[Rfam]
RNA sequence: CCCUAGCCCUGAUGGAAGCGGCAUCCUUUUGUGCAGCGCAGCGGAGCAAAAGAUAUAGCGGACAGCAGGAAACAGC
Numbered sequence: 001c002c003c004u005a006g007c008c009c010u011g012a013u014g015g016a017a018g019c020g021g022c023a024u025c026c027u028u029u030u031g032u033g034c035a036g037c038g039c040a041g042c043g044g045a046g047c048a049a050a051a052g053a054u055a056u057a058g059c060g061g062a063c064a065g066c067a068g069g070a071a072a073c074a075g076c
Base pairs, nucleotide, nucleotide: 009068010067011066013064014063018059019058023054024053025052029049030048031047032046034044036042

The family of this 76-nucleotide RNA sequence from Flavobacterium noncentrifugens is "Flavo-1 RNA".